[Rfam]
RNA: dfrA-dnaX RNA
RNA sequence: GCGCCUAAUGGCAAAGCUACUUAUAUUUCAUCAUAACUACCAUAAAAAAAGUAUCGUAAAGGAGUUAUGAUAUAAU
Dot-bracket structure: .............................((((((((..........................)))))))).....